[Rfam]
The family of this 297-nucleotide sequence from Rodentolepis nana is "Metazoan signal recognition particle RNA". Taxonomically the source falls in Rodentolepis (Eukaryota, Bilateria, Protostomia, Platyhelminthes). The base pairs follow the family's consensus structure, which is taken from published work.

RNA sequence: GCUGGGCGUAGCGGCGUGCGCCUGUAAUCCAGCAACUUGGAGGCCGGGUGGUUGAAACUGCCGUCGCUGGGAGCUCCAACCUGCGUGCGCGCAUGUGGAUCGGGCGUCCGUGCUAAGCGCGGCGUCGAUAUGGGGAUCCUGUCGGAAGGCAUUUGUCUCCAGGUUGCUUAACGAGGGGUGUAAUGGGUCAGGGGGAAACUCAGCAGCCAAAAGCCCCCACGUGGUGCAGUAGCAGGAUCGCGCCCGUGAAUGGCGUGCGUUGGGUGGCCCAGAAAGCGCGUGGUGACUUCCACCUAU
Numbered sequence: 001g002c003u004g005g006g007c008g009u010a011g012c013g014g015c016g017u018g019c020g021c022c023u024g025u026a027a028u029c030c031a032g033c034a035a036c037u038u039g040g041a042g043g044c045c046g047g048g049u050g051g052u053u054g055a056a057a058c059u060g061c062c063g064u065c066g067c068u069g070g071g072a073g074c075u076c077c078a079a080c081c082u083g084c085g086u087g088c089g090c091g092c093a094u095g096u097g098g099a100u101c102g103g104g105c106g107u108c109c110g111u112g113c114u115a116a117g118c119g120c121g122g123c124g125u126c127g128a129u130a131u132g133g134g135g136a137u138c139c140u141g142u143c144g145g146a147a148g149g150c151a152u153u154u155g156u157c158u159c160c161a162g163g164u165u166g167c168u169u170a171a172c173g174a175g176g177g178g179u180g181u182a183a184u185g186g187g188u189c190a191g192g193g194g195g196a197a198a199c200u201c202a203g204c205a206g207c208c209a210a211a212a213g214c215c216c217c218c219a220c221g222u223g224g225u226g227c228a229g230u231a232g233c234a235g236g237a238u239c240g241c242g243c244c245c246g247u248g249a250a251u252g253g254c255g256u257g258c259g260u261u262g263g264g265u266g267g268c269c270c271a272g273a274a275a276g277c278g279c280g281u282g283g284u285g286a287c288u289u290c291c292a293c294c295u296a297u
Stems, first nucleotide, its partner, number of pairs: 001044003004023007028041003046295006054287001057284005064275001067272005076267003080263002083260006092252003096248001101246007108236002111234005117227004122222004126166004131161007140151004167173001175217005184210001186208003193201001194199001